[Rfam]
RNA sequence: CAGUUUUUCAUAGUAUUAGAUUUUAAGGUUAACAAAGGUUGGAGUCAGGCGUGACUCCUUUUUUAUUUUA
Number, nucleotide and partner (000 for none) at each position: 001c000002a000003g000004u000005u000006u000007u000008u000009c000010a000011u000012a000013g000014u000015a000016u000017u000018a000019g000020a000021u000022u000023u000024u000025a000026a000027g000028g000029u000030u000031a000032a000033c000034a000035a000036a000037g000038g000039u000040u000041g058042g057043a056044g055045u054046c053047a052048g000049g000050c000051g000052u047053g046054a045055c044056u043057c042058c041059u000060u000061u000062u000063u000064u000065a000066u000067u000068u000069u000070a000